The family of this 111-nucleotide sequence from Asparagus officinalis is "Small nucleolar RNA Z279/snoR105/snoR108". Its Rfam clan is "snoU13 clan". From the family's description: This family includes the plant snoRNAs known as Z279, snoR105 and snoR108. A search with the family's covariance model found it, with a score of 55 bits. On this family, see Marker et al., Curr Biol 2002: "Experimental RNomics: identification of 140 candidates for small non-messenger RNAs in the plant Arabidopsis thaliana".
[Rfam]
RNA sequence: AGGAUAUGAUGAGUGGUAAUAACUCUUCAUUAUAUUCUUAUUGUGAGUGGAGUGUCUGCCUAUCGCAUGUUAUGACCAUUGGGGCACCCAAAUCUUUACCAAUCUGAUCCC
Numbered sequence: 001a002g003g004a005u006a007u008g009a010u011g012a013g014u015g016g017u018a019a020u021a022a023c024u025c026u027u028c029a030u031u032a033u034a035u036u037c038u039u040a041u042u043g044u045g046a047g048u049g050g051a052g053u054g055u056c057u058g059c060c061u062a063u064c065g066c067a068u069g070u071u072a073u074g075a076c077c078a079u080u081g082g083g084g085c086a087c088c089c090a091a092a093u094c095u096u097u098a099c100c101a102a103u104c105u106g107a108u109c110c111c
Stems, first nucleotide, its partner, number of pairs: 002110003014101005023047003027043001050089001052087003055083002069079002